[Rfam]
Nucleotides: 100
Base pairs, nucleotide, nucleotide: 001100002099003098004097005096006095007094008093013044014043015042016041017040021033022032023031030076045071046070047069048068050067051066052063053062054061080089081088082087
Number, partner (000 for none) and nucleotide at each position: 001100c002099u003098c004097u005096u006095a007094u008093u009000c010000a011000g012000a013044g014043c015042a016041g017040u018000g019000g020000a021033g022032a023031u024000a025000c026000a027000a028000a029000g030076g031023a032022u033021c034000a035000a036000a037000g038000a039000a040017g041016c042015u043014g044013c045071g046070g047069c048068a049000a050067c051066c052063c053062c054061u055000c056000u057000a058000a059000g060000c061054a062053g063052g064000a065000a066051g067050g068048u069047g070046c071045c072000a073000g074000c075000c076030u077000g078000a079000g080089c081088g082087a083000g084000u085000a086000a087082u088081c089080g090000a091000a092000c093008a094007a095006u096005a097004a098003g099002g100001g